[Rfam]
RNA sequence: GUGCAGAUGAUGUGAACGUUUCUUAGUACUGAGUGAACUGAUGUUUCCAAAGGAACCACUGAUGCAC
Numbered sequence: 001g002u003g004c005a006g007a008u009g010a011u012g013u014g015a016a017c018g019u020u021u022c023u024u025a026g027u028a029c030u031g032a033g034u035g036a037a038c039u040g041a042u043g044u045u046u047c048c049a050a051a052g053g054a055a056c057c058a059c060u061g062a063u064g065c066a067c
Stems, first nucleotide, its partner, number of pairs: 001067005